Record summary
The family of this 118-nucleotide sequence from Desulforamulus reducens is "Molybdenum/Tungsten riboswitch aptamer (Moco RNA motif)". Lineage of the source: Bacteria > Bacillati > Bacillota > Peptococcaceae > Desulforamulus reducens.
[Rfam]
RNA sequence: GUAAUAACUUGUCUCCGAGCCGCUUGGUCUAAGGCACUUGCUAUGAUCUCCCGGCCGUUAGGGUUUACUGAGAAAUUGGUAGGCCUCCCGUGUGGAAAGGAGCCGGUAUAUGCUUGGU
Dot-bracket structure: ...(.(....(.((((..((((...((((...(((....)))..))))...)))).....(((((((((((....)))))))))))((.....))...)))).)....).).......